[Rfam]
RNA sequence: GCCCCGCUUUCCCAGUGUUCAGACUACCUGUUCAGGGCGUAGAGAUUGUACAGUAGUCUGCACAUUGGUUAGGCUGUGUG
Numbered sequence: 001g002c003c004c005c006g007c008u009u010u011c012c013c014a015g016u017g018u019u020c021a022g023a024c025u026a027c028c029u030g031u032u033c034a035g036g037g038c039g040u041a042g043a044g045a046u047u048g049u050a051c052a053g054u055a056g057u058c059u060g061c062a063c064a065u066u067g068g069u070u071a072g073g074c075u076g077u078g079u080g
Base pairs, nucleotide, nucleotide: 012068013067014066015065016064017063018062020060021059022058023057024056025055026054028053029052030051031050033048034047